[Rfam]
RNA sequence: UGUUGUGGUAGCGUCUUCUUGGCAGAUCUGAAAAAGUGUCAGAAUGGCCUCAGACUACCACAUAGAGUAUCAAGGAGCUAAAUCUUGAGAGCUAUAACAGAAAUUUUAGUUUUCAGUCUUUCUUCCAACUCCUACAAGA
Number, nucleotide and partner (000 for none) at each position: 001u000002g000003u000004u000005g061006u060007g059008g058009u057010a056011g055012c000013g000014u000015c000016u000017u000018c000019u000020u000021g049022g048023c047024a000025g045026a000027u043028c042029u041030g040031a000032a000033a000034a000035a000036g000037u000038g000039u000040c030041a029042g028043a027044a000045u025046g000047g023048c022049c021050u000051c000052a000053g000054a000055c011056u010057a009058c008059c007060a006061c005062a000063u000064a000065g000066a000067g000068u000069a000070u000071c000072a000073a000074g132075g131076a130077g129078c000079u127080a000081a000082a000083u000084c000085u000086u000087g000088a000089g000090a000091g000092c000093u000094a000095u000096a000097a000098c000099a124100g123101a000102a121103a120104u000105u000106u000107u000108a000109g000110u000111u000112u000113u000114c000115a000116g000117u000118c000119u000120u103121u102122c000123u100124u099125c000126c000127a079128a000129c077130u076131c075132c074133u000134a000135c000136a000137a000138g000139a000
Small nucleolar RNA SNORA12: a 139-nucleotide RNA from Sphenodon punctatus. Rfam classes the family as an H/ACA-box small nucleolar RNA. The match comes from Rfam's covariance-model search (66 bits). About the family: U108 belongs to the H/ACA family of snoRNAs. The sequence is predicted to guide the pseudouridylation of the U372 residue in the 28S rRNA subunit. However it has not been reported as a pseudouridylation site. The source organism's lineage runs through Eukaryota, Metazoa, Bilateria, Sauropsida and Sphenodon.